[Rfam]
RNA: mir-26 microRNA precursor family
RNA sequence: CCGCGGCCGGGUUCAAGUAAUCCAGGAUAGGCUGUGGGCUCGGCAUUCGGCCUGUUCUUGAUUACUUGGUCCUGGAGGCGG
Numbered sequence: 001c002c003g004c005g006g007c008c009g010g011g012u013u014c015a016a017g018u019a020a021u022c023c024a025g026g027a028u029a030g031g032c033u034g035u036g037g038g039c040u041c042g043g044c045a046u047u048c049g050g051c052c053u054g055u056u057c058u059u060g061a062u063u064a065c066u067u068g069g070u071c072c073u074g075g076a077g078g079c080g081g
Stems, first nucleotide, its partner, number of pairs: 002080003007075005014068009024058010